[Rfam]
RNA sequence: UGUGUGUGUGGGGGGGGGAAUUUUCCCUUUGUUGAAGGACACGCCCUCUGAUGGAGAAGGGGAACUCCCUUCCCCCCGUGGCUGCCUGCCUGCAGUGGUCCUGGUAGGGCAGCGUGGACGCUGCAGGCUGUUGCAGCUGCUGUGGCCCCAGAAAGAAAGAGCCGCAGAGC
Numbered sequence: 001u002g003u004g005u006g007u008g009u010g011g012g013g014g015g016g017g018g019a020a021u022u023u024u025c026c027c028u029u030u031g032u033u034g035a036a037g038g039a040c041a042c043g044c045c046c047u048c049u050g051a052u053g054g055a056g057a058a059g060g061g062g063a064a065c066u067c068c069c070u071u072c073c074c075c076c077c078g079u080g081g082c083u084g085c086c087u088g089c090c091u092g093c094a095g096u097g098g099u100c101c102u103g104g105u106a107g108g109g110c111a112g113c114g115u116g117g118a119c120g121c122u123g124c125a126g127g128c129u130g131u132u133g134c135a136g137c138u139g140c141u142g143u144g145g146c147c148c149c150a151g152a153a154a155g156a157a158a159g160a161g162c163c164g165c166a167g168a169g170c
Stems, first nucleotide, its partner, number of pairs: 002170002005167001008165004015046001017045002024038001026034001047152003054075001056072003060069003080147002082142001084140002090136011
Overview: A member of the RNA family "FGF-1 internal ribosome entry site (IRES)" from Phyllostomus discolor, 170 nucleotides long. The family has 6 seed sequences and 127 matches in Rfam 15.1. For this family Rfam cites "Internal Ribosome Entry Site Structural Motifs Conserved among Mammalian Fibroblast Growth Factor 1 Alternatively Spliced mRNAs" (Martineau et al., Mol Cell Biol, 2004). From the family's description: This family represents the FGF-1 internal ribosome entry site (IRES). The FGF-1 IRES is present in the 5' UTR of the mRNA and allows cap-independent translation. It is thought that FGF-1 IRES activity is strictly controlled and highly tissue specific. The source organism's lineage runs through Eukaryota, Opisthokonta, Sarcopterygii, Mammalia and Phyllostomus. It scores 62 bits against the family's covariance model.